Shown here is a 76-nucleotide sequence from Ceratitis capitata, a member of the family "mir-278 microRNA precursor family".

RNA sequence: AGUGCGACCGGAUGAGGGUCCUCAACGGCCGUAUUUCAAUAUGCACGGGUCGGUGGGACUUUCGUCCGUUUGUAAG
Numbered sequence: 001a002g003u004g005c006g007a008c009c010g011g012a013u014g015a016g017g018g019u020c021c022u023c024a025a026c027g028g029c030c031g032u033a034u035u036u037c038a039a040u041a042u043g044c045a046c047g048g049g050u051c052g053g054u055g056g057g058a059c060u061u062u063c064g065u066c067c068g069u070u071u072g073u074a075a076g
Base pairs, nucleotide, nucleotide: 003074004073005072006071007070009068010067011066012065013064014063015062017060018059019058020057021056023055024054026052027051028050029049030048
Dot-bracket structure: ..(((((.(((((((.(((((.((.(((((.................))))).))))))).))))))).)))))..
Gene Ontology terms of the family: miRNA-mediated post-transcriptional gene silencing and RISC complex. On this family, see Stark et al., Genome Res 2007: "Systematic discovery and characterization of fly microRNAs using 12 Drosophila genomes".